Notes:
The family of this 100-nucleotide RNA from Paenibacillus sp. KS1 is "Purine riboswitch aptamer". The base pairs follow the family's consensus structure, which is taken from published work. It scores 67 bits against the family's covariance model.
[Rfam]
RNA sequence: AAUCAUAAAGUAGCGUCUUCUCGUAUAGGUGCAGGAAUUGGCCUGCAUGUUUCUACCCAAUCACCGGAAUGAUUGGACUACGGGGAACCAGCGUGCCGCA
Numbered sequence: 001a002a003u004c005a006u007a008a009a010g011u012a013g014c015g016u017c018u019u020c021u022c023g024u025a026u027a028g029g030u031g032c033a034g035g036a037a038u039u040g041g042c043c044u045g046c047a048u049g050u051u052u053c054u055a056c057c058c059a060a061u062c063a064c065c066g067g068a069a070u071g072a073u074u075g076g077a078c079u080a081c082g083g084g085g086a087a088c089c090a091g092c093g094u095g096c097c098g099c100a
Stems, first nucleotide, its partner, number of pairs: 018086008029048007057076007